[Rfam]
RNA sequence: UCCCUGGUUGAUCCUACCAGUGUCGAUAUGUUUAUGUUAAAGAUUAAGCCAUGCAUAUCUAAGUUCCCACCCUCGCUCUGGUGGUACUGUGAACGGCUCAUUACAACAGUUGAAAUUGCGUGAAAUCCUUCUCAAUGGAUACUUCUAGUAAUUCUGGAGCUAAUACGGUCGCAGUGCUUCGGCACCAUUUAUUAGAUUCCCAACCACCGGCAACGGUUGUUUCGGUGAUGAUUCUGAACAACUCGCAGACCGCAUGCGCAAGCGGCGGCAAUCCACGCAAUCAACUGCCCUAUCAACUUUGAUGGUAGUUUAGUUGGCUACCAUGGUGAUAACGGGUAACGGAGGAUCAGGGUUUGACUCCGGAGAGGAUGCCUGGAACGGCAACCACAUCUAAGGAAGGCAGCAGGCGCGCAAAUUACCCACUCUCAAUGCGAGGAGGUAGGUGACAACAACAACGAGACUGCCCUAUGGGAGCAGUCAUCGAAAAUGGGUAAAAUUCAAACCCUUUAACGAGGAUCAAUGAGAGGGCAAGUCUGGUGCCAGCAGCCGCGGUAAUUCCAGCUCUCAAAAUGUAUGACAUCAUUGCUG
Numbered sequence: 001u002c003c004c005u006g007g008u009u010g011a012u013c014c015u016a017c018c019a020g021u022g023u024c025g026a027u028a029u030g031u032u033u034a035u036g037u038u039a040a041a042g043a044u045u046a047a048g049c050c051a052u053g054c055a056u057a058u059c060u061a062a063g064u065u066c067c068c069a070c071c072c073u074c075g076c077u078c079u080g081g082u083g084g085u086a087c088u089g090u091g092a093a094c095g096g097c098u099c100a101u102u103a104c105a106a107c108a109g110u111u112g113a114a115a116u117u118g119c120g121u122g123a124a125a126u127c128c129u130u131c132u133c134a135a136u137g138g139a140u141a142c143u144u145c146u147a148g149u150a151a152u153u154c155u156g157g158a159g160c161u162a163a164u165a166c167g168g169u170c171g172c173a174g175u176g177c178u179u180c181g182g183c184a185c186c187a188u189u190u191a192u193u194a195g196a197u198u199c200c201c202a203a204c205c206a207c208c209g210g211c212a213a214c215g216g217u218u219g220u221u222u223c224g225g226u227g228a229u230g231a232u233u234c235u236g237a238a239c240a241a242c243u244c245g246c247a248g249a250c251c252g253c254a255u256g257c258g259c260a261a262g263c264g265g266c267g268g269c270a271a272u273c274c275a276c277g278c279a280a281u282c283a284a285c286u287g288c289c290c291u292a293u294c295a296a297c298u299u300u301g302a303u304g305g306u307a308g309u310u311u312a313g314u315u316g317g318c319u320a321c322c323a324u325g326g327u328g329a330u331a332a333c334g335g336g337u338a339a340c341g342g343a344g345g346a347u348c349a350g351g352g353u354u355u356g357a358c359u360c361c362g363g364a365g366a367g368g369a370u371g372c373c374u375g376g377a378a379c380g381g382c383a384a385c386c387a388c389a390u391c392u393a394a395g396g397a398a399g400g401c402a403g404c405a406g407g408c409g410c411g412c413a414a415a416u417u418a419c420c421c422a423c424u425c426u427c428a429a430u431g432c433g434a435g436g437a438g439g440u441a442g443g444u445g446a447c448a449a450c451a452a453c454a455a456c457g458a459g460a461c462u463g464c465c466c467u468a469u470g471g472g473a474g475c476a477g478u479c480a481u482c483g484a485a486a487a488u489g490g491g492u493a494a495a496a497u498u499c500a501a502a503c504c505c506u507u508u509a510a511c512g513a514g515g516a517u518c519a520a521u522g523a524g525a526g527g528g529c530a531a532g533u534c535u536g537g538u539g540c541c542a543g544c545a546g547c548c549g550c551g552g553u554a555a556u557u558c559c560a561g562c563u564c565u566c567a568a569a570a571u572g573u574a575u576g577a578c579a580u581c582a583u584u585g586c587u588g
Stems, first nucleotide, its partner, number of pairs: 004020005022578003026575007035451004041444001042410001048408003052405003057090002062088003069082002097365003107287003112282002116280002121275002124272001134169001136167002143159006176183002189241002192238002203229001205227002211219003250268004255264003289336003296327003302324008340362004344355004367386002370383003388399001390397002416441001418440003424436004456483003459479006465472002491511002493508001495507002521567006534561004543550002

The family of this 588-nucleotide part of an RNA from Mesorhabditis spiculigera is "Eukaryotic small subunit ribosomal RNA". A search with the family's covariance model found it, with a score of 1508 bits. The literature on the family includes a 2001 paper in Science by Yusupov et al., "Crystal structure of the ribosome at 5.5 A resolution". The family's consensus secondary structure is taken from published work.